[Rfam]
RNA sequence: UGGUGGGGUAGAGGCGCGAUAUUUAACAGUCUUCGGUGGAGCUUGAGCAGGCGAUGAGCCCGGGGAGAAGGAAAUGUCGCCGAAGCGGUAUACAGGCUCACUGUAUGCUGCUGGGCCUGCAGUUAAUAGCUGCAGGACUGUCUUGGUAGAUGACCCGAUCUAUCAAGUUGCGCUAUCUCGUCG
Numbered sequence: 001u002g003g004u005g006g007g008g009u010a011g012a013g014g015c016g017c018g019a020u021a022u023u024u025a026a027c028a029g030u031c032u033u034c035g036g037u038g039g040a041g042c043u044u045g046a047g048c049a050g051g052c053g054a055u056g057a058g059c060c061c062g063g064g065g066a067g068a069a070g071g072a073a074a075u076g077u078c079g080c081c082g083a084a085g086c087g088g089u090a091u092a093c094a095g096g097c098u099c100a101c102u103g104u105a106u107g108c109u110g111c112u113g114g115g116c117c118u119g120c121a122g123u124u125a126a127u128a129g130c131u132g133c134a135g136g137a138c139u140g141u142c143u144u145g146g147u148a149g150a151u152g153a154c155c156c157g158a159u160c161u162a163u164c165a166a167g168u169u170g171c172g173c174u175a176u177c178u179c180g181u182c183g
Stems, first nucleotide, its partner, number of pairs: 006178006016080009032065001033063002035060003084112012113139002116136008142167009